This 126-nucleotide RNA from Xaviernesmea oryzae belongs to the Rfam family "Alphaproteobacterial ar14".
The source organism's lineage runs through Bacteria, Pseudomonadati, Hyphomicrobiales, Rhizobiaceae and Xaviernesmea.
The pairing is the family consensus, mapped onto this sequence.
For this family Rfam cites "A survey of sRNA families in alpha-proteobacteria" (del Val et al., RNA Biol, 2012).
Its family is annotated with biological process involved in symbiotic interaction in the Gene Ontology.
It scores 90 bits against the family's covariance model.
About the family: Smr14C2 was renamed NfeR1 (Nodule Formation Efficiency RNA) highly expressed in salt stress and during the symbiotic interaction on legume roots.
RNA sequence: AUCUGUCGAUGAUCUCACUCCUCCUCCCAAGGGAUCGUCGGCCCGAACAGCGGCACUCCUCCUCCCAAGCCGCUUGUUCAUUUUUCGGAAAAGCUGCCGCACCUCCUCCCGCGGCGGGCUUUUUCG
Numbered sequence: 001a002u003c004u005g006u007c008g009a010u011g012a013u014c015u016c017a018c019u020c021c022u023c024c025u026c027c028c029a030a031g032g033g034a035u036c037g038u039c040g041g042c043c044c045g046a047a048c049a050g051c052g053g054c055a056c057u058c059c060u061c062c063u064c065c066c067a068a069g070c071c072g073c074u075u076g077u078u079c080a081u082u083u084u085u086c087g088g089a090a091a092a093g094c095u096g097c098c099g100c101a102c103c104u105c106c107u108c109c110c111g112c113g114g115c116g117g118g119c120u121u122u123u124u125c126g
Stems, first nucleotide, its partner, number of pairs: 007040003011036006045079005050073005091121003094117007